[Rfam]
RNA sequence: CGAGAGAACCCUCGUUAAGGAACUCGGCAAAAUGACCCCGUAACUUCGGGAGAAGGGGUGCCCCGGUAGCGUGAAGGUAAAAACUACUGGAGCGCGAGGGGGCCGCAGAGAAGAGGCCCAAGCGACUGUUUACCAAAAACACAGGUCCCUGCUAAAUCGAAAGAUGAAGUAUAGGGGCUGACGCCUGCCCGGUGCUGGAAGGUUAAGGGGAAGGGUUAUCCGCGAGGAGAAGCUCUGAACCGAAGCCCCAGUAAACGGCGGCCGUAACUAUAACGGUCCUAAGGUAGCGAAAUUCCUUGUCGGGUAAGUUCCGACCCGCACGAAAGGCGUAACGACUUGGGCGCUGUCUCAACGAGGGGCUCG
Number, nucleotide and partner (000 for none) at each position: 001c363002g362003a361004g360005a000006g000007a000008a000009c358010c357011c356012u355013c354014g353015u352016u351017a000018a349019g348020g347021a000022a000023c000024u000025c000026g000027g000028c000029a000030a000031a000032a000033u000034g000035a059036c058037c057038c056039c055040g000041u000042a000043a000044c049045u000046u000047c000048g000049g044050g000051a000052g000053a000054a000055g039056g038057g037058g036059u035060g103061c102062c101063c100064c099065g000066g000067u000068a000069g000070c000071g000072u000073g000074a000075a000076g000077g000078u000079a000080a000081a000082a000083a000084c000085u000086a000087c000088u000089g000090g000091a000092g000093c000094g000095c000096g000097a000098g000099g064100g063101g062102g061103c060104c108105g000106c000107a000108g104109a000110g000111a000112a000113g000114a000115g000116g342117c341118c340119c339120a338121a337122g336123c334124g333125a000126c000127u141128g140129u139130u000131u000132a000133c000134c000135a000136a000137a000138a000139a129140c128141a127142c000143a000144g179145g178146u177147c176148c175149c174150u173151g172152c169153u000154a000155a000156a165157u164158c163159g000160a000161a000162a000163g158164a157165u156166g000167a000168a000169g152170u000171a000172u151173a150174g149175g148176g147177g146178c145179u144180g000181a000182c329183g328184c327185c326186u000187g259188c258189c257190c000191g000192g256193u255194g252195c251196u250197g249198g248199a000200a000201g247202g246203u245204u000205a000206a000207g241208g240209g000210g000211a000212a236213g235214g234215g233216u232217u000218a000219u228220c227221c000222g000223c000224g000225a000226g000227g220228a219229g000230a000231a000232g216233c215234u214235c213236u212237g000238a000239a000240c208241c207242g000243a000244a000245g203246c202247c201248c198249c197250a196251g195252u194253a000254a000255a193256c192257g189258g188259c187260g278261g277262c276263c275264g274265u273266a000267a000268c000269u000270a000271u000272a000273a265274c264275g263276g262277u261278c260279c283280u000281a000282a000283g279284g000285u000286a000287g000288c000289g316290a000291a000292a000293u000294u000295c000296c000297u000298u000299g315300u314301c313302g312303g311304g310305u000306a000307a000308g000309u000310u304311c303312c302313g301314a300315c299316c289317c000318g000319c000320a000321c000322g000323a000324a000325a000326g185327g184328c183329g182330u000331a000332a000333c124334g123335a000336c122337u121338u120339g119340g118341g117342c116343g000344c000345u000346g000347u020348c019349u018350c000351a016352a015353c014354g013355a012356g011357g010358g009359g000360c004361u003362c002363g001
The family of this 363-nucleotide part of an RNA from Desulfofundulus salinus is "Bacterial large subunit ribosomal RNA". The family's consensus secondary structure is taken from published work. Lineage of the source: Bacteria > Bacillota > Clostridia > Peptococcaceae > Desulfofundulus. A search with the family's covariance model found it, with a score of 2907 bits.